[Rfam]
RNA: U4 spliceosomal RNA
Organism: Fusarium graminearum
RNA sequence: AUCCGAGUGCAAGGGCGUUAUCCAUCUCAAUGAGGCUUUGCCGAGAGUGGAUUUUUGCUAGUUGAAAACUAUACACUGACCGCUCCUACUUGGGUUCGCCUGGGUAGGGAAUUUUUGGAACACUUUUCCUAUGGAAACUUUUCUUUCAUUGCGAUCGGUCCUUUAUGAACUGGCGCGAAGAAGG
Numbered sequence: 001a002u003c004c005g006a007g008u009g010c011a012a013g014g015g016c017g018u019u020a021u022c023c024a025u026c027u028c029a030a031u032g033a034g035g036c037u038u039u040g041c042c043g044a045g046a047g048u049g050g051a052u053u054u055u056u057g058c059u060a061g062u063u064g065a066a067a068a069c070u071a072u073a074c075a076c077u078g079a080c081c082g083c084u085c086c087u088a089c090u091u092g093g094g095u096u097c098g099c100c101u102g103g104g105u106a107g108g109g110a111a112u113u114u115u116u117g118g119a120a121c122a123c124u125u126u127u128c129c130u131a132u133g134g135a136a137a138c139u140u141u142u143c144u145u146u147c148a149u150u151g152c153g154a155u156c157g158g159u160c161c162u163u164u165a166u167g168a169a170c171u172g173g174c175g176c177g178a179a180g181a182a183g184g
Stems, first nucleotide, its partner, number of pairs: 020052005026047003034042003084109011